This 84-nucleotide sequence from Ornithorhynchus anatinus belongs to the Rfam family "mir-1422 microRNA precursor family". The family's consensus secondary structure was predicted with RNAalifold. Taxonomically the source falls in Ornithorhynchus (Eukaryota, Metazoa, Tetrapoda, Prototheria).
[Rfam]
Nucleotides: 084
Base pairs, nucleotide, nucleotide: 003082004081005080006079008077009076010075011074013072014071015070016069017068018067019066020065021064022063029057030056031055032054033053034052
Number, partner (000 for none) and nucleotide at each position: 001000g002000u003082g004081a005080u006079g007000c008077u009076g010075g011074u012000u013072u014071a015070a016069g017068u018067c019066c020065a021064g022063a023000c024000a025000a026000g027000u028000g029057u030056u031055u032054u033053c034052u035000g036000u037000a038000u039000a040000u041000u042000u043000a044000g045000a046000u047000a048000a049000u050000g051000u052034a053033g054032a055031a056030a057029a058000c059000c060000u061000u062000a063022u064021c065020u066019g067018g068017a069016u070015u071014u072013g073000u074011a075010c076009c077008a078000g079006c080005a081004u082003c083000a084000g